[Rfam]
RNA sequence: AAGCAAUCCUCUGUAGCAGAUGAUCAAAACUGUCUGACACAAUUUUAGCUUGCUAUAGCAACAAAGUCUAACCUAUUUUGGUGUUUUCUCCUCUAUGAGACAAGCCAAAAUAUAGACUUACUGU
Numbered sequence: 001a002a003g004c005a006a007u008c009c010u011c012u013g014u015a016g017c018a019g020a021u022g023a024u025c026a027a028a029a030c031u032g033u034c035u036g037a038c039a040c041a042a043u044u045u046u047a048g049c050u051u052g053c054u055a056u057a058g059c060a061a062c063a064a065a066g067u068c069u070a071a072c073c074u075a076u077u078u079u080g081g082u083g084u085u086u087u088c089u090c091c092u093c094u095a096u097g098a099g100a101c102a103a104g105c106c107a108a109a110a111u112a113u114a115g116a117c118u119u120a121c122u123g124u
Base pairs, nucleotide, nucleotide: 009048010047012041013040014039017036018035019034020033021032022031064119065118066117067116068115069114070113074112075111076110079107080106081105082104087100088099089098090097
RNA: Small nucleolar RNA SNORA28